[Rfam]
RNA: Plant small nucleolar RNA U3
RNA sequence: ACGACCUUACUUGAACAGGAUUUGUUCUAUAGGCUCGUACCUCUGCAUCCUUGAGUUCUUUAUAGACAGGUGCCAAAGUCUGGUUGAUGAAUCAUGACCGCACGACCAGAGCGUGAUUAAUAGCUUACCGGCCUAUGAUGUAGGCCGUGUGACUGUAGAGGAUCGUUCUCAGCUUGUCUUCUGACUGCUGUGAUUGUCGUGCGGUUGUCUGACAGACU
Numbered sequence: 001a002c003g004a005c006c007u008u009a010c011u012u013g014a015a016c017a018g019g020a021u022u023u024g025u026u027c028u029a030u031a032g033g034c035u036c037g038u039a040c041c042u043c044u045g046c047a048u049c050c051u052u053g054a055g056u057u058c059u060u061u062a063u064a065g066a067c068a069g070g071u072g073c074c075a076a077a078g079u080c081u082g083g084u085u086g087a088u089g090a091a092u093c094a095u096g097a098c099c100g101c102a103c104g105a106c107c108a109g110a111g112c113g114u115g116a117u118u119a120a121u122a123g124c125u126u127a128c129c130g131g132c133c134u135a136u137g138a139u140g141u142a143g144g145c146c147g148u149g150u151g152a153c154u155g156u157a158g159a160g161g162a163u164c165g166u167u168c169u170c171a172g173c174u175u176g177u178c179u180u181c182u183g184a185c186u187g188c189u190g191u192g193a194u195u196g197u198c199g200u201g202c203g204g205u206u207g208u209c210u211g212a213c214a215g216a217c218u
Stems, first nucleotide, its partner, number of pairs: 001038002003035001005033003013027006043069003048064001053059001078217005097205010108194001110167004120156004125151001129147008170190004176185003